[Rfam]
RNA: pan motif
RNA sequence: AAGGCUAUAUCCUAUUGGAAUAGCACUUCCAUUUAAGAAGUAUGCUAGGAAAACAACUGAAACAAAAAUCUGCUCUAAGCCUAAAUGGACCGAGACAGAAGG
Numbered sequence: 001a002a003g004g005c006u007a008u009a010u011c012c013u014a015u016u017g018g019a020a021u022a023g024c025a026c027u028u029c030c031a032u033u034u035a036a037g038a039a040g041u042a043u044g045c046u047a048g049g050a051a052a053a054c055a056a057c058u059g060a061a062a063c064a065a066a067a068a069u070c071u072g073c074u075c076u077a078a079g080c081c082u083a084a085a086u087g088g089a090c091c092g093a094g095a096c097a098g099a100a101g102g
Stems, first nucleotide, its partner, number of pairs: 001028003004024005010019002070098003073094003080088002